The record is a 72-nucleotide sequence from Methylocystis echinoides, which matches "Makes More Granules Regulator RNA (mmgR)" in Rfam.
The match comes from Rfam's covariance-model search (43 bits).
Clan: suhB sRNA clan.
SuhB later renamed mmgR (makes more granules regulator) was a putative non-coding RNA found multiple times in the Agrobacterium tumefaciens genome and related alpha-proteobacteria.
By type it is a small RNA.
RNA sequence: GACUUCCGCCCUCCUCGGGCGUUCUCCCCCGACUUGGGCUGCUGGCGACAGCAGCCCAAUUUUCUUUUCGGG
Number, nucleotide and partner (000 for none) at each position: 001g000002a000003c000004u000005u000006c000007c000008g020009c019010c018011c017012u000013c000014c000015u000016c000017g011018g010019g009020c008021g000022u000023u000024c000025u000026c000027c000028c000029c000030c000031g000032a000033c000034u000035u000036g057037g056038g055039c054040u053041g052042c051043u050044g049045g000046c000047g000048a000049c044050a043051g042052c041053a040054g039055c038056c037057c036058a000059a000060u000061u000062u000063u000064c000065u000066u000067u000068u000069c000070g000071g000072g000